[Rfam]
RNA sequence: CCAGACAGUCGGAUGGUCGCGGGCGCUUUUAGGCGUCUGAGGAAAGUCCGGGCUUCACGGGAACACGAUACCGGAUAACGUCCGGCGGGGGUGACCCCAGGGAAAGUGCAGCAGAAAGCAAACCGCCGACCUUUUUUAAAAAGGGGUAAGGGUGAAAGGGUGCGGUAAGAGCGCACCGCUUUUCCGGUAACGGAAAAGGCACGGAAAACCCUAUCGGAAGCAAGACCAAGUCAGGCGUACGCAACCGCGUAUUCAAGGGCGUUCCCGUCCUUCGCCAGAGGUAGGUCGCUGGAGGCGUUCGGCAACGGACGUCGUAGAAGAAUGGCCAUCGAUUACAGAACCCGGCUUACAGACUGUCUGGCAUA
Numbered sequence: 001c002c003a004g005a006c007a008g009u010c011g012g013a014u015g016g017u018c019g020c021g022g023g024c025g026c027u028u029u030u031a032g033g034c035g036u037c038u039g040a041g042g043a044a045a046g047u048c049c050g051g052g053c054u055u056c057a058c059g060g061g062a063a064c065a066c067g068a069u070a071c072c073g074g075a076u077a078a079c080g081u082c083c084g085g086c087g088g089g090g091g092u093g094a095c096c097c098c099a100g101g102g103a104a105a106g107u108g109c110a111g112c113a114g115a116a117a118g119c120a121a122a123c124c125g126c127c128g129a130c131c132u133u134u135u136u137u138a139a140a141a142a143g144g145g146g147u148a149a150g151g152g153u154g155a156a157a158g159g160g161u162g163c164g165g166u167a168a169g170a171g172c173g174c175a176c177c178g179c180u181u182u183u184c185c186g187g188u189a190a191c192g193g194a195a196a197a198g199g200c201a202c203g204g205a206a207a208a209c210c211c212u213a214u215c216g217g218a219a220g221c222a223a224g225a226c227c228a229a230g231u232c233a234g235g236c237g238u239a240c241g242c243a244a245c246c247g248c249g250u251a252u253u254c255a256a257g258g259g260c261g262u263u264c265c266c267g268u269c270c271u272u273c274g275c276c277a278g279a280g281g282u283a284g285g286u287c288g289c290u291g292g293a294g295g296c297g298u299u300c301g302g303c304a305a306c307g308g309a310c311g312u313c314g315u316a317g318a319a320g321a322a323u324g325g326c327c328a329u330c331g332a333u334u335a336c337a338g339a340a341c342c343c344g345g346c347u348u349a350c351a352g353a354c355u356g357u358c359u360g361g362c363a364u365a
Stems, first nucleotide, its partner, number of pairs: 001361010011350001012330007020039008044348003048345005053220004061265001063263001066216005071085005086100001087098004101211002106209002109204001123151002125147003130144006159177006178200001179198008224287004232278001234276004256271005294313008